[Rfam]
RNA: Nitrogen stress-induced RNA 1
Organism: Nostocales cyanobacterium LEGE 11386
RNA sequence: UGGUAGAUGCACCUUGAUCUUCAACUCCCCUCGUUGGCUAAAGCCUACUGGGGGUUUUUUUA
Numbered sequence: 001u002g003g004u005a006g007a008u009g010c011a012c013c014u015u016g017a018u019c020u021u022c023a024a025c026u027c028c029c030c031u032c033g034u035u036g037g038c039u040a041a042a043g044c045c046u047a048c049u050g051g052g053g054g055u056u057u058u059u060u061u062a
Stems, first nucleotide, its partner, number of pairs: 002013003027054005033048002036045002